[Rfam]
RNA sequence: UCCGCUGCGAGGCGGAAUCCGAAGGAAGCCGGAGGCAAACCCACGGCCCGAUGAACAAGAACCUCAUACGAGGCUGCGCCGUUCGGAUGAGCUGGCGCAACACAGCGAAAUCCAAGGCUGCCAAGGAGCGGUGGAGUAUAUGAGGCGGGCGCGGGGGGAAGGUCAGCGUU
Numbered sequence: 001u002c003c004g005c006u007g008c009g010a011g012g013c014g015g016a017a018u019c020c021g022a023a024g025g026a027a028g029c030c031g032g033a034g035g036c037a038a039a040c041c042c043a044c045g046g047c048c049c050g051a052u053g054a055a056c057a058a059g060a061a062c063c064u065c066a067u068a069c070g071a072g073g074c075u076g077c078g079c080c081g082u083u084c085g086g087a088u089g090a091g092c093u094g095g096c097g098c099a100a101c102a103c104a105g106c107g108a109a110a111u112c113c114a115a116g117g118c119u120g121c122c123a124a125g126g127a128g129c130g131g132u133g134g135a136g137u138a139u140a141u142g143a144g145g146c147g148g149g150c151g152c153g154g155g156g157g158g159a160a161g162g163u164c165a166g167c168g169u170u
Stems, first nucleotide, its partner, number of pairs: 001016006028170001030168002035163002040157003044153002046150005062145006073137003077133007085113004091106004
RNA: Group II catalytic intron D1-D4-3
Organism: Kyrpidia spormannii